[Rfam]
RNA sequence: GAUAUCAAGGAUCGCCCCCUGUCAGCGCGUCGCGCCCACAGGGGUAUUUGUG
Number, nucleotide and partner (000 for none) at each position: 001g000002a000003u000004a000005u000006c000007a000008a000009g000010g000011a000012u000013c000014g000015c000016c044017c043018c042019c041020u040021g039022u038023c000024a000025g035026c034027g033028c032029g000030u000031c000032g028033c027034g026035c025036c000037c000038a022039c021040a020041g019042g018043g017044g016045u000046a000047u000048u000049u000050g000051u000052g000
RNA: ffh sRNA